RNA sequence: AGCCUCCUGGUACUUGGGACAGGCUGUGUUCUUACACUGACAGUAUAGAAACAGGAGUCAGAGUAAACCCAUCCCACAUACAGCCUGGGCAGGCACUCUGCCUGGUCUGUAUGGUGAAUGGGAGGACAUGG
Numbered sequence: 001a002g003c004c005u006c007c008u009g010g011u012a013c014u015u016g017g018g019a020c021a022g023g024c025u026g027u028g029u030u031c032u033u034a035c036a037c038u039g040a041c042a043g044u045a046u047a048g049a050a051a052c053a054g055g056a057g058u059c060a061g062a063g064u065a066a067a068c069c070c071a072u073c074c075c076a077c078a079u080a081c082a083g084c085c086u087g088g089g090c091a092g093g094c095a096c097u098c099u100g101c102c103u104g105g106u107c108u109g110u111a112u113g114g115u116g117a118a119u120g121g122g123a124g125g126a127c128a129u130g131g
Stems, first nucleotide, its partner, number of pairs: 002059001004057005020043001022041001026037004072123005086109003090104005